RNA sequence: CAAUUAGCCCACUUCUCUGAAUGUAUUUAUUUCUACAGAAACAUAGAAACAUCUGGCAAUAGUGAUGCCAUUGUAUGAGCCUGAAGAACAACUGAGGUCAUUAAGGCUCCUGAAAGUGGCUACACUA
Numbered sequence: 001c002a003a004u005u006a007g008c009c010c011a012c013u014u015c016u017c018u019g020a021a022u023g024u025a026u027u028u029a030u031u032u033c034u035a036c037a038g039a040a041a042c043a044u045a046g047a048a049a050c051a052u053c054u055g056g057c058a059a060u061a062g063u064g065a066u067g068c069c070a071u072u073g074u075a076u077g078a079g080c081c082u083g084a085a086g087a088a089c090a091a092c093u094g095a096g097g098u099c100a101u102u103a104a105g106g107c108u109c110c111u112g113a114a115a116g117u118g119g120c121u122a123c124a125c126u127a
Base pairs, nucleotide, nucleotide: 004056005055006054007053016039017038018037019036067120068119069118070117079107080106081105082104084102085101088098089097
The record is a 127-nucleotide RNA sequence from Jaculus jaculus, which matches "Small nucleolar RNA SNORA33" in Rfam.
It scores 78 bits against the family's covariance model.
The source organism's lineage runs through Eukaryota, Dipnotetrapodomorpha, Rodentia, Dipodoidea and Jaculus.
From the family's description: ACA33 is a member of the H/ACA class of snoRNA that guide the sites of modification of uridines to pseudouridines.
Pairs were carried over by alignment from the consensus structure, which was predicted with PFOLD.
Gene Ontology terms of the family: nucleolus and RNA processing.